A member of the RNA family "Small nucleolar RNA SNORD69" from Heliornis fulica, 78 nucleotides long. The organism belongs to Heliornis, within Eukaryota. The family has 11 seed sequences and 524 matches in Rfam 15.1.

RNA sequence: CUUGCAGAGCAUAUGAUGAACAAGCACUGAACCUGACUCUCUGUGAAGUGCUUUCAGUCCAACGCUGAGCUUUGCCCG
Numbered sequence: 001c002u003u004g005c006a007g008a009g010c011a012u013a014u015g016a017u018g019a020a021c022a023a024g025c026a027c028u029g030a031a032c033c034u035g036a037c038u039c040u041c042u043g044u045g046a047a048g049u050g051c052u053u054u055c056a057g058u059c060c061a062a063c064g065c066u067g068a069g070c071u072u073u074g075c076c077c078g
Base pairs, nucleotide, nucleotide: 001078004075005074006073007072008071009070010069
For this family Rfam cites "RNomics: an experimental approach that identifies 201 candidates for novel, small, non-messenger RNAs in mouse" (Huttenhofer et al., EMBO J, 2001). The family's RNA type in Rfam is C/D-box small nucleolar RNA. It scores 40 bits against the family's covariance model. Rfam describes the family as follows. snoRNA HBII-210 belongs to the C/D family of snoRNAs. It is the human orthologue of the mouse MBII-210 and is predicted to guide the 2'O-ribose methylation of large 28S rRNA on residue G4464.